[Rfam]
RNA sequence: GCCCUUUCAAAUUCGAUUUCGGCCACCUAUAUUGGGCGUGCCGGUCGCGAGACCGGCUAUGGCGAUAAACGGCUAUCGGAAUAAACCCAUCGGACCCGGGGGCGGUACCCGGCGCCUCCACCAAAGCCCAGGCUGAUCCUGGGUUUCGGCGGGGGCGAAAUAGGAUCGACGAGGGCGUAAAGGAUAGACUUUCGCUCGGCAUGGUUCCGCCGAUAUCGGGCCGAUUCAAUAGUUGCCAACGACAACUAUGCUCCGGUUGCGGUGGCUGCGUAAGCAGUCCCCAAAGCCGACUCAAAGCCCUAGCGGGUAGCACCGUUAGGCGGGGUUCGGAGGCACCUGGCAACAGAAGCCUCCACU
Numbered sequence: 001g002c003c004c005u006u007u008c009a010a011a012u013u014c015g016a017u018u019u020c021g022g023c024c025a026c027c028u029a030u031a032u033u034g035g036g037c038g039u040g041c042c043g044g045u046c047g048c049g050a051g052a053c054c055g056g057c058u059a060u061g062g063c064g065a066u067a068a069a070c071g072g073c074u075a076u077c078g079g080a081a082u083a084a085a086c087c088c089a090u091c092g093g094a095c096c097c098g099g100g101g102g103c104g105g106u107a108c109c110c111g112g113c114g115c116c117u118c119c120a121c122c123a124a125a126g127c128c129c130a131g132g133c134u135g136a137u138c139c140u141g142g143g144u145u146u147c148g149g150c151g152g153g154g155g156c157g158a159a160a161u162a163g164g165a166u167c168g169a170c171g172a173g174g175g176c177g178u179a180a181a182g183g184a185u186a187g188a189c190u191u192u193c194g195c196u197c198g199g200c201a202u203g204g205u206u207c208c209g210c211c212g213a214u215a216u217c218g219g220g221c222c223g224a225u226u227c228a229a230u231a232g233u234u235g236c237c238a239a240c241g242a243c244a245a246c247u248a249u250g251c252u253c254c255g256g257u258u259g260c261g262g263u264g265g266c267u268g269c270g271u272a273a274g275c276a277g278u279c280c281c282c283a284a285a286g287c288c289g290a291c292u293c294a295a296a297g298c299c300c301u302a303g304c305g306g307g308u309a310g311c312a313c314c315g316u317u318a319g320g321c322g323g324g325g326u327u328c329g330g331a332g333g334c335a336c337c338u339g340g341c342a343a344c345a346g347a348a349g350c351c352u353c354c355a356c357u
Base pairs, nucleotide, nucleotide: 040057041056042055043054044053045052046051061196062195063194064193065192071189073187074186075185076184077183086175087174088173090172091171092170096112097111098110099109100108113157114156115155116154117153118152119151197212198211199210200209202223203222204221206220207219208218323338324337325336326335329354330353331352332351333350334349
RNA: Alphaproteobacteria transfer-messenger RNA